[Rfam]
RNA sequence: AGGCAACCUACUUGUGCUUAAAGAAGAAUGAGAAGUAAGGUGUUAAUCUGCUCAUACAAUUACCUUUUGCUCUUCAGACUUGCUGAUUUAUUCUUUGAAGCUGGUCUAGUAAGCUCAAGAACAUG
Numbered sequence: 001a002g003g004c005a006a007c008c009u010a011c012u013u014g015u016g017c018u019u020a021a022a023g024a025a026g027a028a029u030g031a032g033a034a035g036u037a038a039g040g041u042g043u044u045a046a047u048c049u050g051c052u053c054a055u056a057c058a059a060u061u062a063c064c065u066u067u068u069g070c071u072c073u074u075c076a077g078a079c080u081u082g083c084u085g086a087u088u089u090a091u092u093c094u095u096u097g098a099a100g101c102u103g104g105u106c107u108a109g110u111a112a113g114c115u116c117a118a119g120a121a122c123a124u125g
Stems, first nucleotide, its partner, number of pairs: 002044004007040002009037005015031001017030001064119003069114003076107005082101003
The record is a 125-nucleotide RNA from Salvia splendens, which matches "Small nucleolar RNA snoR77" in Rfam. For this family Rfam cites "Experimental RNomics: identification of 140 candidates for small non-messenger RNAs in the plant Arabidopsis thaliana" (Marker et al., Curr Biol, 2002). Rfam 15.1 lists 649 matches to the family in 221 species. A search with the family's covariance model found it, with a score of 96 bits.